Shown here is a 72-nucleotide RNA sequence from Pseudomonas syringae, a member of the family "narK RNA". NCBI's taxonomy places the organism under Bacteria, Pseudomonadota, Gammaproteobacteria, Pseudomonadaceae, Pseudomonas syringae. Pairs were carried over by alignment from the consensus structure, which is taken from published work. It is one of the family's seed sequences.
RNA sequence: GGCCCAUCUAUUGCUAAAGCAAUCUCACCGGUAGCCAACGGCGGCUAUCACCUUUUACGACAAAGACGUCGC
Numbered sequence: 001g002g003c004c005c006a007u008c009u010a011u012u013g014c015u016a017a018a019g020c021a022a023u024c025u026c027a028c029c030g031g032u033a034g035c036c037a038a039c040g041g042c043g044g045c046u047a048u049c050a051c052c053u054u055u056u057a058c059g060a061c062a063a064a065g066a067c068g069u070c071g072c
Stems, first nucleotide, its partner, number of pairs: 030049007